[Rfam]
RNA sequence: CUACCUCUCCCUCUGGGAGAGGUCGAAAUCCGUUUACGGAUUUCGGGUGAGGGU
Numbered sequence: 001c002u003a004c005c006u007c008u009c010c011c012u013c014u015g016g017g018a019g020a021g022g023u024c025g026a027a028a029u030c031c032g033u034u035u036a037c038g039g040a041u042u043u044c045g046g047g048u049g050a051g052g053g054u
Stems, first nucleotide, its partner, number of pairs: 004022007025044008